[Rfam]
RNA: Small nucleolar RNA Z221/R21b
RNA sequence: AGGCAGUGAUGAUUGAGAAUUGUCAUGCACCACUCUGAUUUUGUGCUGAUAACCAUCUCUAACCCAUAUUUUUAUCUGAGCCU
Dot-bracket structure: ((((...........................................................................))))